The record is a 38-nucleotide sequence from Shouchella clausii, which matches "Ribosomal protein L19 leader" in Rfam. The source organism's lineage runs through Bacteria, Bacilli, Caryophanales, Shouchella and Shouchella clausii. Pairs were carried over by alignment from the consensus structure, which was predicted with CMfinder. Rfam describes the family as follows. This family is a putative r-protein leader autoregulatory structure found in B. subtilis and other low-GC Gram-positive bacteria. For this family Rfam cites "Diverse mechanisms for regulating ribosomal protein synthesis in Escherichia coli" (Zengel and Lindahl, Prog Nucleic Acid Res Mol Biol, 1994).
RNA sequence: ACGAUAUUCCGCUGCUGCAGUGUUGGCAUGAAUGUCUG
Numbered sequence: 001a002c003g004a005u006a007u008u009c010c011g012c013u014g015c016u017g018c019a020g021u022g023u024u025g026g027c028a029u030g031a032a033u034g035u036c037u038g
Stems, first nucleotide, its partner, number of pairs: 003036007013028005